RNA: tRNA
Organism: Powellomyces hirtus
RNA sequence: GGCGUAGUUCAAUGGUUAGAAUUCUGGUUUUGGGAAUCAGCGAUAUAGGUUCGAUUCCUAUCGCC
Numbered sequence: 001g002g003c004g005u006a007g008u009u010c011a012a013u014g015g016u017u018a019g020a021a022u023u024c025u026g027g028u029u030u031u032g033g034g035a036a037u038c039a040g041c042g043a044u045a046u047a048g049g050u051u052c053g054a055u056u057c058c059u060a061u062c063g064c065c
Base pairs, nucleotide, nucleotide: 001065002064003063004062007022008021009020010019024040025039026038027037028036045061046060047059048058049057